[Rfam]
RNA: Archaeal large subunit ribosomal RNA, nucleotides 909 to 1357
Nucleotides: 449
Base pairs, nucleotide, nucleotide: 001390002389003388004386005385006384011024012023013022014021015020027134028133029132030131031130032129036122037121038120040119041118042117043116044115045114046113047112052107053105054104060100061099062098064096065095066094067093068092073088075086076085077084078083140164141163142162143161144160145159146158147157148156169180170179171178184358185357186356187355188354189353190352194348195347196346203345205344206343207342208341209340210339225319226318227317229316230315231314232313233312234311235310236309237308238307246303247302248301249300250299252276253275254274257271258270259269277281282297286295287294359379360378361375362374363373364372365371391444393441394440395439396438397437398436399435400434401433402432409428410427411426412425413424414423415422416421
Number, partner (000 for none) and nucleotide at each position: 001390c002389c003388a004386g005385c006384c007000g008000a009000u010000a011024c012023a013022u014021g015020u016000c017000g018000a019000a020015g021014c022013a023012u024011g025000u026000c027134c028133u029132c030131a031130g032129c033000u034000g035000a036122g037121g038120c039000a040119g041118u042117c043116u044115g045114c046113g047112a048000g049000g050000u051000a052107g053105a054104g055000c056000g057000a058000c059000c060100g061099a062098u063000u064096g065095c066094a067093u068092g069000u070000c071000c072000c073088g074000c075086c076085u077084c078083c079000g080000a081000g082000a083078g084077g085076a086075g087000u088073c089000g090000g091000c092068c093067a094066u095065g096064c097000u098062g099061u100060c101000a102000a103000a104054c105053u106000c107052c108000a109000a110000a111000c112047u113046u114045g115044c116043a117042g118041a119040c120038g121037c122036c123000g124000u125000c126000g127000a128000c129032g130031c131030u132029g133028g134027g135000a136000a137000u138000c139000c140164g141163g142162a143161u144160u145159g146158c147157g148156g149000g150000g151000u152000a153000a154000g155000c156148c157147u158146g159145u160144g161143a162142u163141c164140c165000g166000u167000g168000a169180g170179g171178g172000a173000g174000a175000c176000a177000a178171c179170c180169c181000a182000g183000a184358g185357u186356g187355u188354g189353g190352u191000u192000a193000a194348g195347g196346u197000c198000c199000c200000c201000a202000a203345g204000u205344g206343u207342g208341g209340a210339u211000u212000c213000a214000g215000u216000g217000c218000a219000a220000u221000c222000g223000a224000a225319g226318g227317u228000u229316g230315u231314c232313u233312c234311g235310a236309g237308c238307c239000c240000u241000a242000a243000a244000c245000a246303g247302c248301c249300g250299g251000g252276a253275g254274g255000u256000g257271a258270g259269c260000u261000u262000a263000g264000a265000a266000g267000c268000a269259g270258c271257u272000a273000c274254c275253c276252u277281c278000u279000a280000a281277g282297a283000a284000a285000a286295g287294c288000g289000u290000a291000a292000c293000a294287g295286c296000u297282u298000a299250c300249c301248g302247g303246c304000c305000g306000a307238g308237g309236u310235u311234c312233g313232a314231g315230g316229c317227g318226c319225c320000c321000a322000a323000a324000a325000u326000g327000a328000u329000c330000g331000g332000g333000g334000c335000u336000c337000a338000a339210a340209u341208c342207c343206a344205c345203c346196a347195c348194c349000g350000a351000g352190a353189c354188c355187a356186c357185a358184c359379a360378g361375u362374g363373c364372c365371c366000a367000c368000u369000u370000c371365g372364g373363g374362c375361a376000a377000u378360c379359u380000a381000g382000u383000a384006g385005g386004c387000u388003u389002g390001g391444c392000g393441u394440a395439c396438u397437g398436c399435a400434u401433g402432g403000a404000c405000g406000g407000a408000a409428u410427g411426a412425c413424g414423g415422g416421u417000g418000a419000g420000a421416a422415u423414u424413c425412g426411u427410c428409a429000g430000g431000a432402c433401c434400g435399u436398g437397c438396a439395g440394u441393a442000a443000u444391g445000a446000c447000a448000a449000u